[Rfam]
RNA sequence: AUUGGAUUUAUGAUGUGUCUUUAGUCUGCAUUAUCUUUUUGUAACUUCAAUGAAGGAAUUGAAGAUGACACUGAUCUACUGAGAUCUGGU
Numbered sequence: 001a002u003u004g005g006a007u008u009u010a011u012g013a014u015g016u017g018u019c020u021u022u023a024g025u026c027u028g029c030a031u032u033a034u035c036u037u038u039u040u041g042u043a044a045c046u047u048c049a050a051u052g053a054a055g056g057a058a059u060u061g062a063a064g065a066u067g068a069c070a071c072u073g074a075u076c077u078a079c080u081g082a083g084a085u086c087u088g089g090u
Stems, first nucleotide, its partner, number of pairs: 001090007
The record is a 90-nucleotide RNA sequence from Elaeis guineensis, which matches "Small nucleolar RNA snoR27" in Rfam. Rfam 15.1 lists 649 matches to the family in 212 species. Clan: snR68 clan. Rfam links the family to the GO terms RNA processing and nucleolus. On this family, see Brown et al., RNA 2001: "Multiple snoRNA gene clusters from Arabidopsis". Pairs were carried over by alignment from the consensus structure, which was predicted with WAR.